[Rfam]
RNA: Alphaproteobacterial ar14
RNA sequence: GGUUGUCGGCCAUCUACUCCUCCCAGAUGCGAUGCCGACGCUGAAUGGGGUGCACCUCCUCCCGCGCCACAUUCGAAAAUCGAGCCCGCUGCCACCUCCUCCCGGCAGCGGGCUUUUUU
Numbered sequence: 001g002g003u004u005g006u007c008g009g010c011c012a013u014c015u016a017c018u019c020c021u022c023c024c025a026g027a028u029g030c031g032a033u034g035c036c037g038a039c040g041c042u043g044a045a046u047g048g049g050g051u052g053c054a055c056c057u058c059c060u061c062c063c064g065c066g067c068c069a070c071a072u073u074c075g076a077a078a079a080u081c082g083a084g085c086c087c088g089c090u091g092c093c094a095c096c097u098c099c100u101c102c103c104g105g106c107a108g109c110g111g112g113c114u115u116u117u118u119u
Stems, first nucleotide, its partner, number of pairs: 007037003011029003043074005049068004083114011